[Rfam]
RNA sequence: CAGUGUUAUAGCUCUUUUAGAAUUUGUCUAGCAGGUCUUCCAAUCUCUACUGGAAGCCCCUC
Numbered sequence: 001c002a003g004u005g006u007u008a009u010a011g012c013u014c015u016u017u018u019a020g021a022a023u024u025u026g027u028c029u030a031g032c033a034g035g036u037c038u039u040c041c042a043a044u045c046u047c048u049a050c051u052g053g054a055a056g057c058c059c060c061u062c
Base pairs, nucleotide, nucleotide: 034059035058037056038055039054040053041052042051044049
RNA: U7 small nuclear RNA